[Rfam]
RNA sequence: CGUAUCCUUGUCUUUGGGGAGCAGAGUAUUCAAUGAUCGUUUAGUGAGAAUACUGAUGCUGAAGCCCAUUGUAAAAUAACACUCGCAUCCAUGUAAUUCAUGAGAUGCAAUUUUUGAAGGC
Numbered sequence: 001c002g003u004a005u006c007c008u009u010g011u012c013u014u015u016g017g018g019g020a021g022c023a024g025a026g027u028a029u030u031c032a033a034u035g036a037u038c039g040u041u042u043a044g045u046g047a048g049a050a051u052a053c054u055g056a057u058g059c060u061g062a063a064g065c066c067c068a069u070u071g072u073a074a075a076a077u078a079a080c081a082c083u084c085g086c087a088u089c090c091a092u093g094u095a096a097u098u099c100a101u102g103a104g105a106u107g108c109a110a111u112u113u114u115u116g117a118a119g120g121c
Stems, first nucleotide, its partner, number of pairs: 005019004021059003025054007038044001085108005090102001093099001
Dot-bracket structure: ....((((.......)))).(((.(((((((......(.....)...)))))))..))).........................((((((..(.....)..).))))).............
Shown here is a 121-nucleotide RNA sequence from Eufriesea mexicana, a member of the family "U4atac minor spliceosomal RNA". Rfam classes the family as a spliceosomal small nuclear RNA. The source organism's lineage runs through Eukaryota, Allotriocarida, Hexapoda, Aculeata and Eufriesea. Rfam 15.1 lists 1,648 matches to the family in 818 species. Rfam describes the family as follows. U4atac is an essential component of the minor U12-type spliceosome complex which is required for removal of the rarer class of eukaryotic introns (AT-AC, U12-type). The base pairs follow the family's consensus structure, which is taken from published work.